The family of this 178-nucleotide RNA from Medicago truncatula is "MIR2670 microRNA precursor family". It scores 150 bits against the family's covariance model. The organism belongs to Medicago, within Eukaryota.
RNA sequence: UUGGGGCAAAAUAGUGAGUAGCCGAUUUGGGGAAGUAAUCAACCCUUGGGAUAAAAUUAAAUUUGCUUCUUUUUACCCCAAAAACUUUUUACUGUGGAUAAAAAGAACCAGAUUUAGAUUUAACAAAAGGGUUAAUGAUGUAUUUUCCUCAAGAAUGCUGCUCGCUAUUUUGCCCCAA
Numbered sequence: 001u002u003g004g005g006g007c008a009a010a011a012u013a014g015u016g017a018g019u020a021g022c023c024g025a026u027u028u029g030g031g032g033a034a035g036u037a038a039u040c041a042a043c044c045c046u047u048g049g050g051a052u053a054a055a056a057u058u059a060a061a062u063u064u065g066c067u068u069c070u071u072u073u074u075a076c077c078c079c080a081a082a083a084a085c086u087u088u089u090u091a092c093u094g095u096g097g098a099u100a101a102a103a104a105g106a107a108c109c110a111g112a113u114u115u116a117g118a119u120u121u122a123a124c125a126a127a128a129g130g131g132u133u134a135a136u137g138a139u140g141u142a143u144u145u146u147c148c149u150c151a152a153g154a155a156u157g158c159u160g161c162u163c164g165c166u167a168u169u170u171u172g173c174c175c176c177a178a
Base pairs, nucleotide, nucleotide: 003176004175005174006173007172008171009170010169011168012167013166014165015164016163017162018161019160020159021158022157026153027152028151029150030149031148032147033146034145035144038139039138040137041136042132043131044130046128047127050124052122053121054120055119057117058116059115060114061113062112063111064110065109067107068106069105070104071103072102073101074098076097077096079094080093